[Rfam]
RNA sequence: GAGAGAUUGUGCCCUGCGUCGAAGACGCAUAUUGGAAUGGCACAAUCGACCUGCCGCCGAACGAAUGUGAGGGGGCGAUACCCAAU
Numbered sequence: 001g002a003g004a005g006a007u008u009g010u011g012c013c014c015u016g017c018g019u020c021g022a023a024g025a026c027g028c029a030u031a032u033u034g035g036a037a038u039g040g041c042a043c044a045a046u047c048g049a050c051c052u053g054c055c056g057c058c059g060a061a062c063g064a065a066u067g068u069g070a071g072g073g074g075g076c077g078a079u080a081c082c083c084a085a086u
Base pairs, nucleotide, nucleotide: 008044009043010042011041012040013039015029016028017027018026019025053076054075055074057072058071061068062067

A member of the RNA family "GA-cis RNA", 86 nucleotides long.
Pairs were carried over by alignment from the consensus structure, which is taken from published work.